Rfam assigns this 137-nucleotide RNA from Paenibacillus sp. UNCCL117 to the family "c-di-AMP riboswitch aptamer (ydaO/yuaA leader)". It scores 101 bits against the family's covariance model.
[Rfam]
RNA sequence: AAUAGACAAUGGCCAAAGCUUCCCAAGAAGCGCGGGGAACCCAAUUUUUCGGGGUGAAGCCGCCGCCGUGCGGCAGGGUGAUUGCUCUUUGACCCGAACCCGUCAGCUAACCUCGCAGGCCAAUAAGGAGAGGAUGA
Numbered sequence: 001a002a003u004a005g006a007c008a009a010u011g012g013c014c015a016a017a018g019c020u021u022c023c024c025a026a027g028a029a030g031c032g033c034g035g036g037g038a039a040c041c042c043a044a045u046u047u048u049u050c051g052g053g054g055u056g057a058a059g060c061c062g063c064c065g066c067c068g069u070g071c072g073g074c075a076g077g078g079u080g081a082u083u084g085c086u087c088u089u090u091g092a093c094c095c096g097a098a099c100c101c102g103u104c105a106g107c108u109a110a111c112c113u114c115g116c117a118g119g120c121c122a123a124u125a126a127g128g129a130g131a132g133g134a135u136g137a
Stems, first nucleotide, its partner, number of pairs: 011121004018031003032116006042051001052101003060073004076095004